[Rfam]
RNA sequence: CGGCGAAGGUUCCAGCAGGGAGGUGAGAACUCGAUGAAUUGAGACCUCUCUAACAAAUUAACCAAAAUGCCCUUGCAAAUGUAUUUUGCCGAAUCGUAGGAUGCCCAAUUAGUCUAUUUUUGGAGCGUCUUGAACCCUAGGCUACAUUCAC
Numbered sequence: 001c002g003g004c005g006a007a008g009g010u011u012c013c014a015g016c017a018g019g020g021a022g023g024u025g026a027g028a029a030c031u032c033g034a035u036g037a038a039u040u041g042a043g044a045c046c047u048c049u050c051u052a053a054c055a056a057a058u059u060a061a062c063c064a065a066a067a068u069g070c071c072c073u074u075g076c077a078a079a080u081g082u083a084u085u086u087u088g089c090c091g092a093a094u095c096g097u098a099g100g101a102u103g104c105c106c107a108a109u110u111a112g113u114c115u116a117u118u119u120u121u122g123g124a125g126c127g128u129c130u131u132g133a134a135c136c137c138u139a140g141g142c143u144a145c146a147u148u149c150a151c
Stems, first nucleotide, its partner, number of pairs: 003076004008071002011020003025050003030043003034040001088142003092138001100129002103126002105123004
RNA: Small nucleolar RNA snoR145
Organism: Durio zibethinus